The record is a 123-nucleotide RNA, which matches "Hepatitis C virus J7880 RNA" in Rfam.
Pairs were carried over by alignment from the consensus structure, which was predicted with RNAfold.
By type it is a cis-regulatory element.
[Rfam]
Nucleotides: 123
Base pairs, nucleotide, nucleotide: 006120007119013113014112015111016110017109018108022065023064025062028057035050037048038047039046068103069102071100074097075096076095077094078092079091080090
Number, partner (000 for none) and nucleotide at each position: 001000g002000u003000g004000a005000a006120a007119g008000c009000g010000g011000a012000u013113g014112c015111u016110u017109c018108c019000a020000c021000g022065g023064u024000u025062a026000a027000g028057g029000c030000g031000c032000a033000g034000u035050u036000g037048c038047u039046c040000u041000c042000a043000g044000u045000a046039g047038a048037g049000g050035a051000a052000g053000c054000u055000g056000c057028u058000g059000c060000c061000c062025u063000c064023a065022c066000c067000c068103c069102u070000g071100c072000c073000c074097a075096c076095u077094c078092a079091g080090c081000c082000a083000g084000a085000u086000c087000u088000a089000a090080g091079u092078u093000u094077g095076g096075g097074u098000a099000c100071g101000g102069g103068g104000c105000a106000a107000a108018g109017g110016a111015a112014g113013u114000c115000a116000g117000a118000u119007c120006u121000c122000u123000u